Record summary
6S / SsrS RNA: a 192-nucleotide sequence from Thermaerobacillus caldiproteolyticus. The family has 150 seed sequences and 5,006 matches in Rfam 15.1. The match comes from Rfam's covariance-model search (82 bits). Rfam classes the family as a non-coding RNA gene. From the family's description: E. coli 6S RNA was the first non coding RNA to be sequenced, but its function was unknown until recently. A reference for the family is Wassarman and Storz (2000), "6S RNA regulates E. coli RNA polymerase activity", Cell.
RNA sequence: UACCUGCUGCGUUGUACGUGAACGAAUGAAGUUUCAACCGAUGGCUGUAAAGAGGGAGUUCUAUAUCGAAACGGGAAUGUCAUGCCUCCCAUUGAUGAUGGCAGAGGACGACAAGAACGUUUCUGCGAACACCCACCUAGUGGAGUGUGGUUGAGAAACUCCAUUCAAACAACGGCAAAUCGCGGCACUUUC
Dot-bracket structure: .(..(((((((((((.(((...........(((((((((..............(((.((((...(..((((((.....((....((((...............))))...)).....)))))))..)))).)))..............))))))..)))............)))))))..)))))))..)..